[Rfam]
RNA sequence: GUACCUUUCUCGGCCUUUUGGAGAAGAUCAAGUGUAGUAUCUGUUCUUAUUAGGUUAAUAUCUGAUAUGUGGGUCAUUGGCCAAGCGCUGCACUAUAGCUCGGGCCUGGCGCACCCCACAAAUUCUAGUUCAAAAUAUUACAAAAUUUGGUUGUCCUGCCGACCUGUUUGGAUAAUAUUCGUGUGGGUUCUUGUUUUACAAGAGAAAUAAUAUGUUCAUAAUAUUUU
Number, nucleotide and partner (000 for none) at each position: 001g000002u000003a000004c000005c000006u000007u000008u027009c026010u025011c000012g000013g000014c021015c020016u000017u000018u000019u000020g015021g014022a000023g000024a000025a010026g009027a008028u000029c000030a000031a000032g000033u000034g000035u000036a000037g000038u000039a000040u000041c000042u000043g000044u000045u000046c000047u000048u067049a066050u065051u064052a063053g062054g000055u000056u000057a000058a000059u000060a000061u000062c053063u052064g051065a050066u049067a048068u000069g119070u118071g117072g116073g115074u000075c000076a000077u000078u000079g000080g000081c000082c000083a000084a000085g000086c000087g000088c000089u000090g000091c000092a000093c000094u000095a000096u000097a000098g000099c000100u000101c000102g000103g000104g000105c000106c000107u000108g000109g000110c000111g000112c000113a000114c000115c073116c072117c071118a070119c069120a000121a000122a000123u000124u000125c000126u000127a000128g000129u000130u000131c000132a000133a000134a000135a000136u000137a000138u000139u000140a000141c000142a000143a000144a000145a000146u000147u000148u000149g000150g176151u175152u174153g173154u172155c000156c000157u000158g000159c170160c000161g168162a167163c000164c000165u000166g000167u162168u161169u000170g159171g000172a154173u153174a152175a151176u150177a000178u000179u000180c000181g000182u220183g219184u218185g217186g216187g215188u000189u212190c000191u210192u209193g208194u207195u000196u000197u000198a000199c000200a000201a000202g000203a000204g000205a000206a000207a194208u193209a192210a191211u000212a189213u000214g000215u187216u186217c185218a184219u183220a182221a000222u000223a000224u000225u000226u000227u000